[Rfam]
RNA sequence: GCGGUUUGAUUUGUGUACAAACUUAAAACUCAAAGAGCAUGGCUUGUCAUCAACUUUUUUCUUUGUUACCAUGAGAUGGGAGUUAAAGAACAGAAAAAAAUUG
Numbered sequence: 001g002c003g004g005u006u007u008g009a010u011u012u013g014u015g016u017a018c019a020a021a022c023u024u025a026a027a028a029c030u031c032a033a034a035g036a037g038c039a040u041g042g043c044u045u046g047u048c049a050u051c052a053a054c055u056u057u058u059u060u061c062u063u064u065g066u067u068a069c070c071a072u073g074a075g076a077u078g079g080g081a082g083u084u085a086a087a088g089a090a091c092a093g094a095a096a097a098a099a100a101u102u103g
Base pairs, nucleotide, nucleotide: 040097044093045092046091052084053083054082055081056080057079060076061075062074063073
Rfam assigns this 103-nucleotide RNA sequence from Paspalum vaginatum to the family "Small nucleolar RNA snoR97". NCBI's taxonomy places the organism under Eukaryota, Streptophytina, Poales, Andropogonodae, Paspalum. A reference for the family is Marker et al. (2002), "Experimental RNomics: identification of 140 candidates for small non-messenger RNAs in the plant Arabidopsis thaliana", Curr Biol. The family's RNA type in Rfam is H/ACA-box small nucleolar RNA. It scores 44 bits against the family's covariance model.